[Rfam]
RNA sequence: UGGUCAAUGAUGACUAGCCCACUGCGCAAUCCGAGUUCCAAGGUGAACCUGAUGAUGGAACUAGUGCUGUUGCAAAAGCUGAGACCA
Numbered sequence: 001u002g003g004u005c006a007a008u009g010a011u012g013a014c015u016a017g018c019c020c021a022c023u024g025c026g027c028a029a030u031c032c033g034a035g036u037u038c039c040a041a042g043g044u045g046a047a048c049c050u051g052a053u054g055a056u057g058g059a060a061c062u063a064g065u066g067c068u069g070u071u072g073c074a075a076a077a078g079c080u081g082a083g084a085c086c087a
Stems, first nucleotide, its partner, number of pairs: 002086004038051001041050003

Rfam assigns this 87-nucleotide sequence from Acipenser ruthenus to the family "small Cajal body-specific RNA 18". A reference for the family is Darzacq et al. (2002), "Cajal body-specific small nuclear RNAs: a novel class of 2'-O-methylation and pseudouridylation guide RNAs", EMBO J. Rfam 15.1 lists 406 matches to the family in 191 species. The family's RNA type in Rfam is small Cajal body RNA. Rfam's curators write: scaRNAs are a specific class of small nuclear RNAs which localise to the Cajal bodies and guide the modification of RNA polymerase II transcribed spliceosomal RNAs U1, U2, U4, U5 and U12. This C/D box domain U91 (also known as U4-8) was identified by Darzacq and is predicted to guide the 2'O-ribose methylation of U4 snRNA C8. NCBI's taxonomy places the organism under Eukaryota, Metazoa, Actinopteri, Acipenserinae, Acipenser.